[Rfam]
RNA sequence: GUGCUUUGUUAUUUUCAUUGACUUCAAAAUAUCAUGAUAUUGAGAAUUCAAUGGUGUACAACAAGGAGCUU
Numbered sequence: 001g002u003g004c005u006u007u008g009u010u011a012u013u014u015u016c017a018u019u020g021a022c023u024u025c026a027a028a029a030u031a032u033c034a035u036g037a038u039a040u041u042g043a044g045a046a047u048u049c050a051a052u053g054g055u056g057u058a059c060a061a062c063a064a065g066g067a068g069c070u071u
Base pairs, nucleotide, nucleotide: 001069002068004066005065006064007063008062009061010060012058015054016053017052018051019050020049021048023046024045025044028041029040030039031038032037
Shown here is a 71-nucleotide RNA sequence from Capsicum baccatum, a member of the family "MIR8041 microRNA precursor family". Pairs were carried over by alignment from the consensus structure, which was predicted with RNAalifold. NCBI's taxonomy places the organism under Eukaryota, eudicotyledons, Pentapetalae, Capsiceae, Capsicum. The family has 2 seed sequences and 411 matches in Rfam 15.1.